Notes:
T-box leader: a 230-nucleotide RNA sequence from Catenisphaera adipataccumulans. A reference for the family is Gerdeman et al. (2003), "Solution structure of the Bacillus subtilis T-box antiterminator RNA: seven nucleotide bulge characterized by stacking and flexibility", J Mol Biol. The organism belongs to Catenisphaera, within Bacteria. The family's RNA type in Rfam is cis-regulatory leader.
RNA sequence: UCAAAUUCGUUGAUGAGAACACGUCGCAAAGAUGCAGGAACGUGCAGAGAGUCUGUGGCUGGUGAAAACAGAUCGUUCGCAGUUUGUCGAUAUCCUCUCUAAGAAGCGUGCUGAAAAUAGUAAGCAUCGCCGGAAUCCUCCGUCAUCAGGAAGCGUAUGUUGGUACGUAAAGAGUCGCAGGCAUGCCUGCGGAAUUAGGGUGGUAACGCGGAAUAUUUUUCGUCCCUUUG
Numbered sequence: 001u002c003a004a005a006u007u008c009g010u011u012g013a014u015g016a017g018a019a020c021a022c023g024u025c026g027c028a029a030a031g032a033u034g035c036a037g038g039a040a041c042g043u044g045c046a047g048a049g050a051g052u053c054u055g056u057g058g059c060u061g062g063u064g065a066a067a068a069c070a071g072a073u074c075g076u077u078c079g080c081a082g083u084u085u086g087u088c089g090a091u092a093u094c095c096u097c098u099c100u101a102a103g104a105a106g107c108g109u110g111c112u113g114a115a116a117a118u119a120g121u122a123a124g125c126a127u128c129g130c131c132g133g134a135a136u137c138c139u140c141c142g143u144c145a146u147c148a149g150g151a152a153g154c155g156u157a158u159g160u161u162g163g164u165a166c167g168u169a170a171a172g173a174g175u176c177g178c179a180g181g182c183a184u185g186c187c188u189g190c191g192g193a194a195u196u197a198g199g200g201u202g203g204u205a206a207c208g209c210g211g212a213a214u215a216u217u218u219u220u221c222g223u224c225c226c227u228u229u230g
Stems, first nucleotide, its partner, number of pairs: 007104002015099004026087005040076003051073006107129002109126004131142003175192007197227004208223005